RNA: Purine riboswitch aptamer
Organism: Gracilibacillus boraciitolerans
RNA sequence: AAAUCUGACAAAUAACCACCUCAUAUAAUUUGAGAAUAGGGCUCAAAAGUUUCUACCCGUCACCGUAAAUGAUGGACUAUGGGGGGGGAAGAUGACAUA
Numbered sequence: 001a002a003a004u005c006u007g008a009c010a011a012a013u014a015a016c017c018a019c020c021u022c023a024u025a026u027a028a029u030u031u032g033a034g035a036a037u038a039g040g041g042c043u044c045a046a047a048a049g050u051u052u053c054u055a056c057c058c059g060u061c062a063c064c065g066u067a068a069a070u071g072a073u074g075g076a077c078u079a080u081g082g083g084g085g086g087g088g089a090a091g092a093u094g095a096c097a098u099a
Stems, first nucleotide, its partner, number of pairs: 019084007029047006057075006